[Rfam]
RNA: Bacterial large subunit ribosomal RNA, nucleotides 1650 to 2011
Organism: Inmirania thermothiophila
RNA sequence: UGAGAGAACUCGGGUGAAGGAACUAGGCAAAAUGGCACCGUAACUUCGGGAGAAGGUGCGCCUCUGGCGGUGAAGGGCCUCGCGCCCGGAGCUGUCGGGGGCCGCAGUGACCAGGGGGUCGCGACUGUUUACUAAAAACACAGCACUCUGCAAACUCGUAAGAGGACGUAUAGGGUGUGACGCCUGCCCGGUGCCGGAAGGUUAAGGGAUGGGGUUAGCCUUCGGGCGAAGCUCCUGAACGAAGCCCCGGUAAACGGCGGCCGUAACUAUAACGGUCCUAAGGUAGCGAAAUUCCUUGUCGGGUAAGUUCCGACCUGCACGAAUGGCGUAACGACGGCCCCGCUGUCUCCACCCGAGACUCA
Dot-bracket structure: ((((....((((((((.(((..............(((((....(....).....)))))((((((((((((...................))))))))))))(...).......(((((((((..(((.........)))..(((((((((...(((....)))...)..))))))))..((((.(((..(((((((..(((...(....(((((..((......))...)))))....)...))))))))..)))))((((((.......))))))(...).....(.........((((((.....))))))).........))))...)).)))))))....))).)))))))).))))